tRNA: a 71-nucleotide RNA from Mycoplasmoides genitalium. By type it is a transfer RNA. Pairs were carried over by alignment from the consensus structure, which is taken from published work. Its family is annotated with triplet codon-amino acid adaptor activity in the Gene Ontology. Rfam's curators write: Transfer RNA (tRNA) molecules are approximately 80 nucleotides in length. Their secondary structure includes four short double-helical elements and three loops (D, anti-codon, and T loops). Further hydrogen bonds mediate the characteristic L-shaped molecular structure. tRNAs have two regions of fundamental functional importance: the anti-codon, which is responsible for specific mRNA codon recognition, and the 3' end, to which the tRNAs corresponding amino acid is attached (by aminoacyl-tRNA synthetases). tRNAs cope with the degeneracy of the genetic code in two manners: having more than one tRNA (with a specific anti-codon) for a particular amino acid; and 'wobble' base-pairing, i.e. permitting non-standard base-pairing at the 3rd anti-codon position. The match comes from Rfam's covariance-model search (57 bits).
[Rfam]
RNA sequence: GGUUCCAUGGUGUAGUGAUAACAUAUCUCCCUGUCACGGAGGGGUUGCGGGUUUGAUUCCCGUUGGAACCG
Numbered sequence: 001g002g003u004u005c006c007a008u009g010g011u012g013u014a015g016u017g018a019u020a021a022c023a024u025a026u027c028u029c030c031c032u033g034u035c036a037c038g039g040a041g042g043g044g045u046u047g048c049g050g051g052u053u054u055g056a057u058u059c060c061c062g063u064u065g066g067a068a069c070c071g
Stems, first nucleotide, its partner, number of pairs: 001070007010024004026042005047063005
Dot-bracket structure: (((((((..((((.......)))).(((((.......)))))....(((((.......)))))))))))).